[Rfam]
RNA sequence: AAUCGGUUGGGGUAAACUUCGCGAAAGCGAAGGACGCUAAAAUCAUGGGUCUAAGGCUGCUAAUUCAUAUUGGAAUUAGGCUAGGAUCGCCAGAUUACAAGC
Numbered sequence: 001a002a003u004c005g006g007u008u009g010g011g012g013u014a015a016a017c018u019u020c021g022c023g024a025a026a027g028c029g030a031a032g033g034a035c036g037c038u039a040a041a042a043u044c045a046u047g048g049g050u051c052u053a054a055g056g057c058u059g060c061u062a063a064u065u066c067a068u069a070u071u072g073g074a075a076u077u078a079g080g081c082u083a084g085g086a087u088c089g090c091c092a093g094a095u096u097a098c099a100a101g102c
Stems, first nucleotide, its partner, number of pairs: 012037002017032006041096004046092003049087003056081003

Rfam assigns this 102-nucleotide RNA sequence from Desulfosporosinus youngiae to the family "c-di-GMP-I riboswitch aptamer". Rfam links the family to the GO term cyclic-di-GMP binding. It scores 52 bits against the family's covariance model. The source organism's lineage runs through Bacteria, Bacillota, Desulfitobacteriaceae, Desulfosporosinus and Desulfosporosinus youngiae.